[Rfam]
RNA sequence: UGUAAAAUCAGGAAUUGUAAGCAAUUCUUAGGCAAUGUGUAUAAUGUUCAUAAGUCAUCCAAGAAAUUGUUCACAAUGCCUGUAAUA
Numbered sequence: 001u002g003u004a005a006a007a008u009c010a011g012g013a014a015u016u017g018u019a020a021g022c023a024a025u026u027c028u029u030a031g032g033c034a035a036u037g038u039g040u041a042u043a044a045u046g047u048u049c050a051u052a053a054g055u056c057a058u059c060c061a062a063g064a065a066a067u068u069g070u071u072c073a074c075a076a077u078g079c080c081u082g083u084a085a086u087a
Stems, first nucleotide, its partner, number of pairs: 009082004014077005020071007028063002031060002040052003